RNA sequence: CGACACGCGGGAGGCAUCGAGGUGUGACCCCAACCCCGGUCGCCGGGAUCAUGCCGAGCCACUGGCGAGACCGACCCGCGUGUAU
Numbered sequence: 001c002g003a004c005a006c007g008c009g010g011g012a013g014g015c016a017u018c019g020a021g022g023u024g025u026g027a028c029c030c031c032a033a034c035c036c037c038g039g040u041c042g043c044c045g046g047g048a049u050c051a052u053g054c055c056g057a058g059c060c061a062c063u064g065g066c067g068a069g070a071c072c073g074a075c076c077c078g079c080g081u082g083u084a085u
Base pairs, nucleotide, nucleotide: 003083004082005081006080007079008078009077010076011075013060014059015058022054023053024052025051026050027049029047038072039071040068041067042066043065044064
Dot-bracket structure: ..(((((((((.(((......((((((.(........[[[[[[[..).))))))...)))...]]]]]..]]..)))))))))..